[Rfam]
About this RNA
Shown here is a 183-nucleotide sequence from Paraburkholderia tagetis, a member of the family "RT-15 RNA".
RNA sequence: CUUCGCCCGCUUCAUGGAGGUCAAGGCCGCCAUGACUGAGCGACUUUUAAAUCUGGUCGUGCCGCUGGCCCACAAGGCCAACGCCAUGCGCAUCACGGAAACCACCGGCAUAGAGCCGGUUUCGUCCGGCGCAGUUUCCCAGCUGAGCAAUCGACCGGGCGACGUAGAAAGCACGAUUGGUAC
Numbered sequence: 001c002u003u004c005g006c007c008c009g010c011u012u013c014a015u016g017g018a019g020g021u022c023a024a025g026g027c028c029g030c031c032a033u034g035a036c037u038g039a040g041c042g043a044c045u046u047u048u049a050a051a052u053c054u055g056g057u058c059g060u061g062c063c064g065c066u067g068g069c070c071c072a073c074a075a076g077g078c079c080a081a082c083g084c085c086a087u088g089c090g091c092a093u094c095a096c097g098g099a100a101a102c103c104a105c106c107g108g109c110a111u112a113g114a115g116c117c118g119g120u121u122u123c124g125u126c127c128g129g130c131g132c133a134g135u136u137u138c139c140c141a142g143c144u145g146a147g148c149a150a151u152c153g154a155c156c157g158g159g160c161g162a163c164g165u166a167g168a169a170a171g172c173a174c175g176a177u178u179g180g181u182a183c
Base pairs, nucleotide, nucleotide: 004042005041006040012035013034014033015032016031017030019028020027021026057176058175059174060173061172062171063083064082066080067079068078069077070076087133088132089131090130091129096128097127098126099125102124105119106118107117108116109115135162136161138159139158140157142155144153145152146151
Overview:
The family's consensus secondary structure is taken from published work.